About this RNA: The record is a 449-nucleotide part of an RNA from Natranaeroarchaeum sulfidigenes, which matches "Archaeal large subunit ribosomal RNA" in Rfam. The match comes from Rfam's covariance-model search (2760 bits). The family's consensus secondary structure is taken from published work.
[Rfam]
RNA sequence: CCAACCGAAACAUGUCGAAGCAUGACCUGCGCCGAGGUAGUUCGUGGGGUAGAGCAACCGAUUGAUGACCCCGCCUCCGAGAGGAGUCGGCUCAUCUGUCAAACUCCGAACCUACGAACGCUGUUGACGCGUGGAAUCCGGUGCGCGGGGUAAGCCUGCGUACCGUAAGGGAGACAACCCAGCGCCGGGUUAAGGUCCCAAACUGUGGAUUAAGUGCGAUCGAAGGUGGUCCCGAGCCCCAGACAGCCGGGAGGUGAGCUUAGAAGCAGCUACCCUCUAAGAAAAGCGUAACAGCUUACCGGCCGAGGUUCGGGGCGCCCAAAAUGAUCGGGGCUCAAAUCCACGACCGAGACCUGGCCGCACCCCUGACAGGGUGAUCGAGUAGGUUGGCGCUCCAGUUGGGUGGAAGCACGGGUGAGAACUCGUGUGGACCGACUGGUGACGACAAU
Numbered sequence: 001c002c003a004a005c006c007g008a009a010a011c012a013u014g015u016c017g018a019a020g021c022a023u024g025a026c027c028u029g030c031g032c033c034g035a036g037g038u039a040g041u042u043c044g045u046g047g048g049g050u051a052g053a054g055c056a057a058c059c060g061a062u063u064g065a066u067g068a069c070c071c072c073g074c075c076u077c078c079g080a081g082a083g084g085a086g087u088c089g090g091c092u093c094a095u096c097u098g099u100c101a102a103a104c105u106c107c108g109a110a111c112c113u114a115c116g117a118a119c120g121c122u123g124u125u126g127a128c129g130c131g132u133g134g135a136a137u138c139c140g141g142u143g144c145g146c147g148g149g150g151u152a153a154g155c156c157u158g159c160g161u162a163c164c165g166u167a168a169g170g171g172a173g174a175c176a177a178c179c180c181a182g183c184g185c186c187g188g189g190u191u192a193a194g195g196u197c198c199c200a201a202a203c204u205g206u207g208g209a210u211u212a213a214g215u216g217c218g219a220u221c222g223a224a225g226g227u228g229g230u231c232c233c234g235a236g237c238c239c240c241a242g243a244c245a246g247c248c249g250g251g252a253g254g255u256g257a258g259c260u261u262a263g264a265a266g267c268a269g270c271u272a273c274c275c276u277c278u279a280a281g282a283a284a285a286g287c288g289u290a291a292c293a294g295c296u297u298a299c300c301g302g303c304c305g306a307g308g309u310u311c312g313g314g315g316c317g318c319c320c321a322a323a324a325u326g327a328u329c330g331g332g333g334c335u336c337a338a339a340u341c342c343a344c345g346a347c348c349g350a351g352a353c354c355u356g357g358c359c360g361c362a363c364c365c366c367u368g369a370c371a372g373g374g375u376g377a378u379c380g381a382g383u384a385g386g387u388u389g390g391c392g393c394u395c396c397a398g399u400u401g402g403g404u405g406g407a408a409g410c411a412c413g414g415g416u417g418a419g420a421a422c423u424c425g426u427g428u429g430g431a432c433c434g435a436c437u438g439g440u441g442a443c444g445a446c447a448a449u
Stems, first nucleotide, its partner, number of pairs: 001390006011024005027134006036122003040119008052107001053105002060100003064096005073088001075086004140164009169180003184358007194348003203345001205344006225319003229316010246303005252276003257271003277281001282297001286295002359380002361376005391444001393441001395439008409428008